[Rfam]
This 263-nucleotide RNA sequence from Acanthisitta chloris belongs to the Rfam family "Small Cajal body specific RNA 6". About the family: U88 is small Cajal body specific RNA (scaRNA). scaRNAs are a novel class of small nuclear RNAs which localise to the Cajal bodies. U88 is found associated with both fibrillarin and Gar1p and co-localises with coilin in Cajal bodies. Its family is annotated with RNA processing and nucleolus in the Gene Ontology. The family's RNA type in Rfam is small Cajal body RNA.

RNA sequence: GGUCUGUGAUGAAUAGUAAAAGGUCUGAUUAUCCCAAGACUUGCACUUCCAUGACCUUUUCUCCCAGCAGUUUCUCACCAGUCACAGCACAGUAAUGGUGUGGCUGGCAGAGUGUUUGCUGACAGCUUGAGAUGUGUUCAGUUUGUGUUAACCUGGAGUAUCGGAGACAUGACUGGGAUUAACAUCCAACACUCCUGCCUGAAGGAGUUUGGGGUUGUGGAUUGUUCAAAGUGGACAUGUGAUCUGACUUUUCUGCUGAGACC
Numbered sequence: 001g002g003u004c005u006g007u008g009a010u011g012a013a014u015a016g017u018a019a020a021a022g023g024u025c026u027g028a029u030u031a032u033c034c035c036a037a038g039a040c041u042u043g044c045a046c047u048u049c050c051a052u053g054a055c056c057u058u059u060u061c062u063c064c065c066a067g068c069a070g071u072u073u074c075u076c077a078c079c080a081g082u083c084a085c086a087g088c089a090c091a092g093u094a095a096u097g098g099u100g101u102g103g104c105u106g107g108c109a110g111a112g113u114g115u116u117u118g119c120u121g122a123c124a125g126c127u128u129g130a131g132a133u134g135u136g137u138u139c140a141g142u143u144u145g146u147g148u149u150a151a152c153c154u155g156g157a158g159u160a161u162c163g164g165a166g167a168c169a170u171g172a173c174u175g176g177g178a179u180u181a182a183c184a185u186c187c188a189a190c191a192c193u194c195c196u197g198c199c200u201g202a203a204g205g206a207g208u209u210u211g212g213g214g215u216u217g218u219g220g221a222u223u224g225u226u227c228a229a230a231g232u233g234g235a236c237a238u239g240u241g242a243u244c245u246g247a248c249u250u251u252u253c254u255g256c257u258g259a260g261a262c263c
Base pairs, nucleotide, nucleotide: 001263002262003261004260037245038244039243041241044219045218046217049214050213061207062206063205064204065121066120067119068118069117070116078107079106080105081104082103083102084101085100086099129187131186132185133184134183135182145173146172149169152166154164